This 212-nucleotide RNA sequence from Clostridium pasteurianum belongs to the Rfam family "Enterococcus sRNA 1300".
The base pairs follow the family's consensus structure, which was predicted with RNAfold.
A search with the family's covariance model found it, with a score of 56 bits.
The family has 3 seed sequences and 115 matches in Rfam 15.1.

[Rfam]
RNA sequence: AUGUAUUCAGUUCGUUUAAGAUAAGUUGGCAAUAAAAAAAGUGGUAAAAACAUCCACAAUGGUGGGCUUUUUUGUUGUGUUUAUUUUGCGGAUUGGCAUGGAUAUGGACUAGACAUAGCUGUUUUAAGGUUAUAUAUUUUUUCCUAUAUGUCUUUUUUGCGUUGUUAUGCAGACUAAAGUUCCUUUGUGGAUUUAUGAUCUGCAUUUUUUAU
Number, nucleotide and partner (000 for none) at each position: 001a000002u000003g000004u000005a000006u000007u096008c095009a094010g093011u092012u091013c090014g089015u088016u000017u000018a000019a086020g085021a084022u083023a082024a081025g080026u079027u000028g000029g078030c077031a076032a075033u074034a073035a072036a071037a070038a069039a068040a000041g067042u066043g000044g000045u000046a000047a000048a000049a000050a000051c064052a063053u062054c061055c000056a000057c000058a000059a000060u000061g054062g053063u052064g051065g000066g042067c041068u039069u038070u037071u036072u035073u034074g033075u032076u031077g030078u029079g026080u025081u024082u023083a022084u021085u020086u019087u000088g015089c014090g013091g012092a011093u010094u009095g008096g007097c000098a000099u000100g000101g156102a155103u000104a000105u000106g000107g000108a000109c000110u000111a000112g152113a151114c150115a149116u148117a147118g000119c000120u000121g144122u000123u000124u000125u000126a139127a138128g000129g000130u000131u000132a000133u000134a000135u000136a000137u000138u127139u126140u000141u000142u000143c000144c121145u000146a000147u117148a116149u115150g114151u113152c112153u000154u000155u102156u101157u000158u000159g000160c000161g000162u000163u000164g000165u000166u000167a205168u204169g203170c202171a201172g200173a000174c197175u000176a000177a193178a192179g000180u190181u189182c000183c187184u000185u000186u000187g183188u000189g181190g180191a000192u178193u177194u000195a000196u000197g174198a000199u000200c172201u171202g170203c169204a168205u167206u000207u000208u000209u000210u000211a000212u000